[Rfam]
RNA: pemK RNA
RNA sequence: AUAAUGAAACUUCUGUUUAGCCUCAGUCAGAGCGUUAAAAGCGUCUAAGGCAAGGGGAACAGGCCGUCUGGAAGAGGGUAGGUGAAAGUCCUAUGG
Numbered sequence: 001a002u003a004a005u006g007a008a009a010c011u012u013c014u015g016u017u018u019a020g021c022c023u024c025a026g027u028c029a030g031a032g033c034g035u036u037a038a039a040a041g042c043g044u045c046u047a048a049g050g051c052a053a054g055g056g057g058a059a060c061a062g063g064c065c066g067u068c069u070g071g072a073a074g075a076g077g078g079u080a081g082g083u084g085a086a087a088g089u090c091c092u093a094u095g096g
Stems, first nucleotide, its partner, number of pairs: 012093001013062006063079003067075003080092003